Small nucleolar RNA snoR60: a 75-nucleotide RNA from Zizania palustris. The match comes from Rfam's covariance-model search (87 bits). Rfam links the family to the GO terms nucleolus and RNA processing. Pairs were carried over by alignment from the consensus structure, which was predicted with PFOLD. By type it is a C/D-box small nucleolar RNA. The organism belongs to Zizania, within Eukaryota. Its Rfam clan is "SNORD101 clan".
[Rfam]
RNA sequence: UUGCAAAUGAUGAUCACACUCGGAUUCCCCUUCAGGACAUCAAAAUGUAUGAUGCAAAUUCGAGUUUCUGAUGCA
Numbered sequence: 001u002u003g004c005a006a007a008u009g010a011u012g013a014u015c016a017c018a019c020u021c022g023g024a025u026u027c028c029c030c031u032u033c034a035g036g037a038c039a040u041c042a043a044a045a046u047g048u049a050u051g052a053u054g055c056a057a058a059u060u061c062g063a064g065u066u067u068c069u070g071a072u073g074c075a
Stems, first nucleotide, its partner, number of pairs: 002075004